[Rfam]
RNA sequence: GGUCAUGAGUGCCAGCAGAUAGCCCCGGCUUGCUGGCCGGCAACCCUCCCUCCGCGGCGGGGUGCCCCGGGUGAAGACCUGGUCGAGCGGAACACCGCCUCGGCAAGCGCGGGCG
Numbered sequence: 001g002g003u004c005a006u007g008a009g010u011g012c013c014a015g016c017a018g019a020u021a022g023c024c025c026c027g028g029c030u031u032g033c034u035g036g037c038c039g040g041c042a043a044c045c046c047u048c049c050c051u052c053c054g055c056g057g058c059g060g061g062g063u064g065c066c067c068c069g070g071g072u073g074a075a076g077a078c079c080u081g082g083u084c085g086a087g088c089g090g091a092a093c094a095c096c097g098c099c100u101c102g103g104c105a106a107g108c109g110c111g112g113g114c115g
Base pairs, nucleotide, nucleotide: 001079002078003077004076009038011037012036013035014034015033016032021030022029039066040065041064044062045061046060048057049056082104083103084102085101086100087098088097089096090095
The family of this 115-nucleotide RNA sequence from Galactobacter caseinivorans is "SAM (S-adenosyl methionine) riboswitch aptamer". For this family Rfam cites "The aptamer core of SAM-IV riboswitches mimics the ligand-binding site of SAM-I riboswitches" (Weinberg et al., RNA, 2008). SAM-IV is a mRNA element that regulates gene expression via direct sensing of S-adenosylmethionine (SAM or AdoMet). SAM-IV riboswitches share conserved nucleotide positions with the previously described SAM-I riboswitches sequence analysis and molecular recognition experiments suggest that SAM-I and SAM-IV riboswitches share similar ligand binding sites, but have different scaffolds. Rfam 15.1 lists 2,360 matches to the family in 1,305 species.